[Rfam]
Overview: The family of this 65-nucleotide RNA from Saccharicrinis fermentans is "DUF805 RNA". Clan: DUF805 clan. The family's RNA type in Rfam is cis-regulatory element. Pairs were carried over by alignment from the consensus structure, which is taken from published work.
RNA sequence: UACACAUGGAGGCCAGUAACCAUACAAACGGGGUGAAACUGAAAAACCUUACGAGUAGGAAUUUA
Numbered sequence: 001u002a003c004a005c006a007u008g009g010a011g012g013c014c015a016g017u018a019a020c021c022a023u024a025c026a027a028a029c030g031g032g033g034u035g036a037a038a039c040u041g042a043a044a045a046a047c048c049u050u051a052c053g054a055g056u057a058g059g060a061a062u063u064u065a
Stems, first nucleotide, its partner, number of pairs: 006023004032048003039059002